Rfam assigns this 120-nucleotide RNA sequence from Paenalicyclobacillus macrosporangiidus to the family "SAM riboswitch aptamer (S box leader)". Rfam links the family to the GO term regulation of gene expression.
RNA sequence: CUCUUAUCCAGAGUGGCGGAGGGACUGGCCCGAUGAAGCCCGGCAACCAUCGGCGAAGCGAAAGGCUCGCCGAAGAGGUGCCAAUUCCUGCAGCCCGCGGUGCGGGCUGAGAGAUGAGAG
Numbered sequence: 001c002u003c004u005u006a007u008c009c010a011g012a013g014u015g016g017c018g019g020a021g022g023g024a025c026u027g028g029c030c031c032g033a034u035g036a037a038g039c040c041c042g043g044c045a046a047c048c049a050u051c052g053g054c055g056a057a058g059c060g061a062a063a064g065g066c067u068c069g070c071c072g073a074a075g076a077g078g079u080g081c082c083a084a085u086u087c088c089u090g091c092a093g094c095c096c097g098c099g100g101u102g103c104g105g106g107c108u109g110a111g112a113g114a115u116g117a118g119a120g
Stems, first nucleotide, its partner, number of pairs: 001120008013041001015040003021031003025090001027088002042082004047078002050073007086112001091109006